[Rfam]
RNA: U4 spliceosomal RNA
RNA sequence: UUCUUUGCGCAGAGGCGGUGGUACCAUAGCCAAUGAGUGUUAUACGAGGUGUGAUUAUACUAGUUGAAAACUAUUGUAUUUUACUUUCGAUUUUUAAUCCCGAAAGUAUAAUUGAUUUUACUCCACAAAGAAUGGA
Numbered sequence: 001u002u003c004u005u006u007g008c009g010c011a012g013a014g015g016c017g018g019u020g021g022u023a024c025c026a027u028a029g030c031c032a033a034u035g036a037g038u039g040u041u042a043u044a045c046g047a048g049g050u051g052u053g054a055u056u057a058u059a060c061u062a063g064u065u066g067a068a069a070a071c072u073a074u075u076g077u078a079u080u081u082u083a084c085u086u087u088c089g090a091u092u093u094u095u096a097a098u099c100c101c102g103a104a105a106g107u108a109u110a111a112u113u114g115a116u117u118u119u120a121c122u123c124c125a126c127a128a129a130g131a132a133u134g135g136a
Base pairs, nucleotide, nucleotide: 023055025053026052027051029050030049031048037045038044039043082108083107084106085105086104087103088102089101093097122136123135124134125133